About this RNA: Rfam assigns this 65-nucleotide sequence from Xaviernesmea oryzae to the family "S-element". It is annotated as a cis-regulatory element. The literature on the family includes a 2004 paper in Mol Microbiol by Venkova-Canova et al., "Two discrete elements are required for the replication of a repABC plasmid: an antisense RNA and a stem-loop structure". Its family is annotated with translation regulator activity and mRNA transcription in the Gene Ontology. From the family's description: This family represents a group of S-elements from p42d and related plasmids. The S-element has multiple functions and is believed to act as a negative regulator of repC transcription, be required for efficient replication and act as a translational enhancer of repC.
[Rfam]
RNA sequence: UGUCAAGCGUUGAGCGUCGUUUUGGCGAGCGGAUUUCUUUUGCCUUUUGAAAGGUGAGAGACAUG
Numbered sequence: 001u002g003u004c005a006a007g008c009g010u011u012g013a014g015c016g017u018c019g020u021u022u023u024g025g026c027g028a029g030c031g032g033a034u035u036u037c038u039u040u041u042g043c044c045u046u047u048u049g050a051a052a053g054g055u056g057a058g059a060g061a062c063a064u065g
Base pairs, nucleotide, nucleotide: 009062010061011060015056016055017054018053020052021051022050023049024048025047027045029043030042031041032040033039